mir-9193 microRNA precursor family: a 73-nucleotide RNA from Myotis myotis.
RNA sequence: CUCGGGGGAGGGGGAGUCCCUCAGCCUGAUUGCGAGAGGGUGCAGGCAGGCCAAGGGACCCCACUGGUGCACG
Dot-bracket structure: ...(.(..((.(((.((((((..(((((.(((((......))))).)))))..))))))))).))..).)...
Source information: Rfam 15.1 lists 6,008 matches to the family in 8 species. The family's consensus secondary structure was predicted with RNAalifold. Rfam links the family to the GO terms RISC complex and miRNA-mediated post-transcriptional gene silencing.